Record summary:
Rfam assigns this 117-nucleotide RNA sequence from Phyllobacterium sp. YR531 to the family "Alphaproteobacterial ar14". On this family, see del Val et al., RNA Biol 2012: "A survey of sRNA families in alpha-proteobacteria". Smr14C2 was renamed NfeR1 (Nodule Formation Efficiency RNA) highly expressed in salt stress and during the symbiotic interaction on legume roots. The source organism's lineage runs through Bacteria, Pseudomonadati, Hyphomicrobiales, Phyllobacteriaceae and Phyllobacterium. The family has 118 seed sequences and 784 matches in Rfam 15.1.
Nucleotides: 117
Stems, first nucleotide, its partner, number of pairs: 008040002011037007044075007052067002083112011
Number, partner (000 for none) and nucleotide at each position: 001000u002000c003000u004000c005000c006000c007000a008040c009039g010000u011037c012036c013035g014034u015033g016032g017031c018000a019000c020000u021000c022000c023000u024000c025000c026000u027000c028000c029000c030000a031017g032016c033015c034014a035013c036012g037011g038000c039009c040008g041000c042000a043000u044075a045074a046073a047072g048071a049070a050069c051000a052067g053066c054000g055000u056000u057000c058000c059000u060000c061000c062000c063000a064000g065000a066053g067052c068000c069050g070049u071048u072047c073046u074045u075044u076000a077000c078000a079000a080000g081000u082000a083112a084111c085110a086109c087108c088107c089106a090105u091104c092103g093102c094000u095000c096000c097000u098000c099000c100000c101000a102093g103092c104091g105090g106089u107088g108087g109086g110085u111084g112083u113000u114000c115000u116000u117000c